Shown here is an 80-nucleotide RNA from Denticeps clupeoides, a member of the family "mir-203 microRNA precursor family".
NCBI's taxonomy places the organism under Eukaryota, Opisthokonta, Deuterostomia, Craniata, Denticeps.
It scores 94 bits against the family's covariance model.
RNA sequence: GUUCCUCUGGUGAAGUGGUUCUUAACAGUUCAACAGUUCUCAGCUAAAAUUGUGAAAUGUUUAGGACCACUUGAUCAGGG
Numbered sequence: 001g002u003u004c005c006u007c008u009g010g011u012g013a014a015g016u017g018g019u020u021c022u023u024a025a026c027a028g029u030u031c032a033a034c035a036g037u038u039c040u041c042a043g044c045u046a047a048a049a050u051u052g053u054g055a056a057a058u059g060u061u062u063a064g065g066a067c068c069a070c071u072u073g074a075u076c077a078g079g080g
Stems, first nucleotide, its partner, number of pairs: 014071006021064002024061004029056004